[Rfam]
RNA: Small nucleolar RNA Z103
RNA sequence: UUGGACGUGAUGAUUAUUUCCCCAGAUUAUCGAAGCUGAAAUUACUGAGCGCAUUUACUGUAUUUUCUCCUUUUUAGGGGAAAAUCCAAGCCAGAUUUUCUGAUCCAU
Dot-bracket structure: .((((..................................................................................................)))).
Numbered sequence: 001u002u003g004g005a006c007g008u009g010a011u012g013a014u015u016a017u018u019u020c021c022c023c024a025g026a027u028u029a030u031c032g033a034a035g036c037u038g039a040a041a042u043u044a045c046u047g048a049g050c051g052c053a054u055u056u057a058c059u060g061u062a063u064u065u066u067c068u069c070c071u072u073u074u075u076a077g078g079g080g081a082a083a084a085u086c087c088a089a090g091c092c093a094g095a096u097u098u099u100c101u102g103a104u105c106c107a108u
Stems, first nucleotide, its partner, number of pairs: 002107004